[Rfam]
RNA sequence: CCCACGGCGACGUGGGAUCUGAAGGAAGCCGGCGGCAAACCUCCGGCCCGACGGACAGGAACCUCAUAGGAGGCGGUCCCUGCUUGGAUGAGUCUGCAAACCAAGACAAAGUCCAUGCUGCCGAAGGGCAGGGAACGUAAAUGAGGCGGGUGGAUGGAGGGAAAGAGCGUGUC
Dot-bracket structure: ((((((....))))))...........(.((....(...(((((((((((...........((((((.....(((.(((((((..((((..((((........))))...)))).............))))))).)))..)))))))))))...))))))....)....)).)

Shown here is a 173-nucleotide sequence from Marinithermofilum abyssi, a member of the family "Group II catalytic intron D1-D4-3". The family has 406 seed sequences and 4,274 matches in Rfam 15.1. The organism belongs to Marinithermofilum, within Bacteria. The base pairs follow the family's consensus structure.